Shown here is a 111-nucleotide RNA sequence from Mesorhizobium opportunistum, a member of the family "EcpR1". The base pairs follow the family's consensus structure, which was predicted with WAR. The organism belongs to Mesorhizobium opportunistum, within Bacteria. Perviously named SmelC291, SmrC10, or Sra33. According to its overproduction phenotype it was renamed Elongated Cell Phenotype RNA1. It is annotated as a small RNA.
[Rfam]
RNA sequence: AUACCCCAUGAUGCUCAGGUCCGCCGCAUCUCCUGGGUCCGUGGGGUCGGCCGGCCGGCGCUGGCAAAUAGUGGCCUCCUCGUACCGCUGCCAAACGCCGACCGGCCCCCU
Numbered sequence: 001a002u003a004c005c006c007c008a009u010g011a012u013g014c015u016c017a018g019g020u021c022c023g024c025c026g027c028a029u030c031u032c033c034u035g036g037g038u039c040c041g042u043g044g045g046g047u048c049g050g051c052c053g054g055c056c057g058g059c060g061c062u063g064g065c066a067a068a069u070a071g072u073g074g075c076c077u078c079c080u081c082g083u084a085c086c087g088c089u090g091c092c093a094a095a096c097g098c099c100g101a102c103c104g105g106c107c108c109c110c111u
Base pairs, nucleotide, nucleotide: 003047004046005045006044007043008042009041010039014037015036016035017034018033019032049107050106051105052104053103054102056100057099058098059097